[Rfam]
RNA sequence: UUGGAGAAUCGAUGAAGCUCAGGAGGGAUAGCGCCAUGAUCAUAUGUAUGCUACUUAGCUGUGGCGCUAUCUAUCCUGAGUUUCACGGGUUCUCCUU
Number, nucleotide and partner (000 for none) at each position: 001u000002u000003g000004g000005a000006g000007a000008a000009u000010c088011g000012a000013u000014g000015a000016a082017g081018c080019u079020c078021a077022g076023g075024a074025g000026g072027g071028a070029u069030a068031g067032c066033g065034c064035c063036a000037u000038g000039a000040u000041c000042a000043u000044a000045u000046g000047u000048a000049u000050g000051c000052u000053a000054c000055u000056u000057a000058g000059c000060u000061g000062u000063g035064g034065c033066g032067c031068u030069a029070u028071c027072u026073a000074u024075c023076c022077u021078g020079a019080g018081u017082u016083u000084c000085a000086c000087g000088g010089g000090u000091u000092c000093u000094c000095c000096u000097u000
Description
This 97-nucleotide RNA sequence from Punica granatum belongs to the Rfam family "MIR390 microRNA precursor family". A search with the family's covariance model found it, with a score of 92 bits. A reference for the family is Xie et al. (2005), "Expression of Arabidopsis MIRNA genes", Plant Physiol.